[Rfam]
RNA sequence: ACACAGGGAAGGAGGUGGUCCGCGAAAUUGAUAGCUUCAGGGACAUGUGAGGUGGCUGCGCGCUAGCUGCAUUGGCUCGGAAGAGCCAGCGAUUCACGCGCGCUGGCGAACUCCCCGCAGCCACCCGGCCCCCGAGCUUCCGGUCUGUCCAACCGGACGUUUGCUCGGGGGCCGUUCCAU
Numbered sequence: 001a002c003a004c005a006g007g008g009a010a011g012g013a014g015g016u017g018g019u020c021c022g023c024g025a026a027a028u029u030g031a032u033a034g035c036u037u038c039a040g041g042g043a044c045a046u047g048u049g050a051g052g053u054g055g056c057u058g059c060g061c062g063c064u065a066g067c068u069g070c071a072u073u074g075g076c077u078c079g080g081a082a083g084a085g086c087c088a089g090c091g092a093u094u095c096a097c098g099c100g101c102g103c104u105g106g107c108g109a110a111c112u113c114c115c116c117g118c119a120g121c122c123a124c125c126c127g128g129c130c131c132c133c134g135a136g137c138u139u140c141c142g143g144u145c146u147g148u149c150c151a152a153c154c155g156g157a158c159g160u161u162u163g164c165u166c167g168g169g170g171g172c173c174g175u176u177c178c179a180u
Base pairs, nucleotide, nucleotide: 015059016058017057018056019055061108062107063106064105065104066103067102069101070100072098073096074095075094126174127173128172129171130170131169132168133167134166135165136164137163139157140156141155142154143153144152
RNA: Actinobacteria sRNA Ms_IGR-5